[Rfam]
RNA sequence: AAAAAGGGCUUCUGUCGUGCGUGGCACGGGGGGGCUGCGCGCCACCCUCGCGGAAUCGACAUCAAGAGAUUUCGGAAGCAUAAUUUUUGCGAUAGGGGGUUGCCGGUAAUCGCCUGUUCCGGCACCCCA
Numbered sequence: 001a002a003a004a005a006g007g008g009c010u011u012c013u014g015u016c017g018u019g020c021g022u023g024g025c026a027c028g029g030g031g032g033g034g035c036u037g038c039g040c041g042c043c044a045c046c047c048u049c050g051c052g053g054a055a056u057c058g059a060c061a062u063c064a065a066g067a068g069a070u071u072u073c074g075g076a077a078g079c080a081u082a083a084u085u086u087u088u089g090c091g092a093u094a095g096g097g098g099g100u101u102g103c104c105g106g107u108a109a110u111c112g113c114c115u116g117u118u119c120c121g122g123c124a125c126c127c128c129a
Stems, first nucleotide, its partner, number of pairs: 008079005013026005027050006034043001036041001051074007097127004102123005108118003